[Rfam]
U7 small nuclear RNA: a 64-nucleotide RNA sequence from Pan troglodytes. A search with the family's covariance model found it, with a score of 56 bits. About the family: Animal histone pre-mRNAs are spliced by a different mechanism than nuclear pre-mRNAs and self-splicing introns. Rfam 15.1 lists 10,439 matches to the family in 569 species. For this family Rfam cites "3' end processing of mouse histone pre-mRNA: evidence for additional base-pairing between U7 snRNA and pre-mRNA" (Spycher et al., Nucleic Acids Res, 1994). The organism belongs to Pan, within Eukaryota.
RNA sequence: AAGUGUCAUGGCUCUUUAAGAAUUUGUACAGCAGGUUUUCUGGUUUUUGCCGGAAAGCACCCGC
Numbered sequence: 001a002a003g004u005g006u007c008a009u010g011g012c013u014c015u016u017u018a019a020g021a022a023u024u025u026g027u028a029c030a031g032c033a034g035g036u037u038u039u040c041u042g043g044u045u046u047u048u049g050c051c052g053g054a055a056a057g058c059a060c061c062c063g064c
Stems, first nucleotide, its partner, number of pairs: 034061003037056008